[Rfam]
Description: Shown here is a 188-nucleotide sequence from Dioscorea zingiberensis, a member of the family "MIR159 microRNA precursor family". Gene Ontology terms of the family: RISC complex and miRNA-mediated post-transcriptional gene silencing. Lineage of the source: Eukaryota > Streptophytina > Euphyllophyta > Dioscoreaceae > Dioscorea.
RNA sequence: AAAAGUAAAAGAGAGCUUCCUUCAGCCCACUCAUGGGUGGUGGUAGGGUUUAACUAGCUGCCGACUCAUUCAGACAAAUACCAAGUGAAAAAUAAGGAGUGCUUGGUAGAUGAGUGAAUGAUGCGGGAGAUGAGUUAGAUCCUAUGUUGCUCUUGCUUGGACUGAAGGGAGCUCCCUUCUCUUUUCAA
Numbered sequence: 001a002a003a004a005g006u007a008a009a010a011g012a013g014a015g016c017u018u019c020c021u022u023c024a025g026c027c028c029a030c031u032c033a034u035g036g037g038u039g040g041u042g043g044u045a046g047g048g049u050u051u052a053a054c055u056a057g058c059u060g061c062c063g064a065c066u067c068a069u070u071c072a073g074a075c076a077a078a079u080a081c082c083a084a085g086u087g088a089a090a091a092a093u094a095a096g097g098a099g100u101g102c103u104u105g106g107u108a109g110a111u112g113a114g115u116g117a118a119u120g121a122u123g124c125g126g127g128a129g130a131u132g133a134g135u136u137a138g139a140u141c142c143u144a145u146g147u148u149g150c151u152c153u154u155g156c157u158u159g160g161a162c163u164g165a166a167g168g169g170a171g172c173u174c175c176c177u178u179c180u181c182u183u184u185u186c187a188a
Base pairs, nucleotide, nucleotide: 013174014173015172016171017170018169019168020167023164024163025162027160028159029158036151058129059128061126062125063124067120068119069118070117075112